[Rfam]
RNA sequence: UUCUGAGCCGUGGCCCCGACUCCCAGCCGCACGCCCUGACACACUUCCCCGGUGCCAGGUCGGAGCGGAUGGGGAUCCGGGCUCCGGGUCGGAGGCAG
Numbered sequence: 001u002u003c004u005g006a007g008c009c010g011u012g013g014c015c016c017c018g019a020c021u022c023c024c025a026g027c028c029g030c031a032c033g034c035c036c037u038g039a040c041a042c043a044c045u046u047c048c049c050c051g052g053u054g055c056c057a058g059g060u061c062g063g064a065g066c067g068g069a070u071g072g073g074g075a076u077c078c079g080g081g082c083u084c085c086g087g088g089u090c091g092g093a094g095g096c097a098g
Stems, first nucleotide, its partner, number of pairs: 010085001012083005018077002021074005027068004032062002035059004040054003
About this RNA
The family of this 98-nucleotide RNA sequence from Microbacterium sp. TNHR37B is "mraW RNA". NCBI's taxonomy places the organism under Bacteria, Bacillati, Actinomycetes, Microbacteriaceae, Microbacterium. It scores 64 bits against the family's covariance model.